[Rfam]
RNA sequence: UCACCACUCGGGCCUUUUGGCUUAGAUCAAGUGUAGUAUCUGUUCUUUUAAGUUUAACCACUUAAACGACCCCACCGGGGUCUUAAAAGGUUAUCGUAUUUUUGCCGCCCUGUCCUUGGCCCUCUGCUUGCACGGCCUCGGGCGCCAUGACCUCGCUACUGCACUCGCGGCGAGCGUUGUGACGGGAU
Numbered sequence: 001u002c003a004c005c006a007c008u009c010g011g012g013c014c015u016u017u018u019g020g021c022u023u024a025g026a027u028c029a030a031g032u033g034u035a036g037u038a039u040c041u042g043u044u045c046u047u048u049u050a051a052g053u054u055u056a057a058c059c060a061c062u063u064a065a066a067c068g069a070c071c072c073c074a075c076c077g078g079g080g081u082c083u084u085a086a087a088a089g090g091u092u093a094u095c096g097u098a099u100u101u102u103u104g105c106c107g108c109c110c111u112g113u114c115c116u117u118g119g120c121c122c123u124c125u126g127c128u129u130g131c132a133c134g135g136c137c138u139c140g141g142g143c144g145c146c147a148u149g150a151c152c153u154c155g156c157u158a159c160u161g162c163a164c165u166c167g168c169g170g171c172g173a174g175c176g177u178u179g180u181g182a183c184g185g186g187a188u
Stems, first nucleotide, its partner, number of pairs: 008026002011022004047066006068082006112143004118137002123134001125132002146181006152174006

U2 spliceosomal RNA: a 188-nucleotide sequence from Hydnum rufescens. Lineage of the source: Eukaryota > Opisthokonta > Dikarya > Basidiomycota > Hydnum rufescens. Rfam classes the family as a spliceosomal small nuclear RNA.